[Rfam]
RNA sequence: UUCUUAUCGAGAGAGAUGGAGGGACAGGCCCUGGGAAAUCUCAGCAACCAGCCAAUUUUGGUCAGGUGCUAAUUCCGUCAGACACAUGUCUGAGAGAUAGGAU
Numbered sequence: 001u002u003c004u005u006a007u008c009g010a011g012a013g014a015g016a017u018g019g020a021g022g023g024a025c026a027g028g029c030c031c032u033g034g035g036a037a038a039u040c041u042c043a044g045c046a047a048c049c050a051g052c053c054a055a056u057u058u059u060g061g062u063c064a065g066g067u068g069c070u071a072a073u074u075c076c077g078u079c080a081g082a083c084a085c086a087u088g089u090c091u092g093a094g095a096g097a098u099a100g101g102a103u
Stems, first nucleotide, its partner, number of pairs: 002102007013042005021031003027076002043070004048066002050062001052060001074095001079092005
Rfam assigns this 103-nucleotide RNA from Salibacterium salarium to the family "SAM riboswitch aptamer (S box leader)".